U2 spliceosomal RNA: a 191-nucleotide RNA sequence from Pangasianodon hypophthalmus. The family has 208 seed sequences and 71,512 matches in Rfam 15.1. By type it is a spliceosomal small nuclear RNA. Pairs were carried over by alignment from the consensus structure, which is taken from published work.
RNA sequence: AUCGCUUCUCAGGCGUUUGGCUAAGAUCAAGUGUACGAUCUGUUCUUAUCAGUUUAAUAUCUGAUACGUCCUCCAUUCAAGGACUUUAUAGUAAACCAAUUUUUAGAGCAGGGAGCUGGAAGAGGGGCUUGCUCCGUCUUCUCCACGCAUCGACAUGCUAAUGCAGUACCUCCGGGAACGGUACACCUUUU
Numbered sequence: 001a002u003c004g005c006u007u008c009u010c011a012g013g014c015g016u017u018u019g020g021c022u023a024a025g026a027u028c029a030a031g032u033g034u035a036c037g038a039u040c041u042g043u044u045c046u047u048a049u050c051a052g053u054u055u056a057a058u059a060u061c062u063g064a065u066a067c068g069u070c071c072u073c074c075a076u077u078c079a080a081g082g083a084c085u086u087u088a089u090a091g092u093a094a095a096c097c098a099a100u101u102u103u104u105a106g107a108g109c110a111g112g113g114a115g116c117u118g119g120a121a122g123a124g125g126g127g128c129u130u131g132c133u134c135c136g137u138c139u140u141c142u143c144c145a146c147g148c149a150u151c152g153a154c155a156u157g158c159u160a161a162u163g164c165a166g167u168a169c170c171u172c173c174g175g176g177a178a179c180g181g182u183a184c185a186c187c188u189u190u191u
Base pairs, nucleotide, nucleotide: 007026008025009024011022012021014019047066048065049064050063051062052061068084069083070082071081072080112144113143114142115141118138119137124135125134126133127132147184149182150181151180152179154176156174157173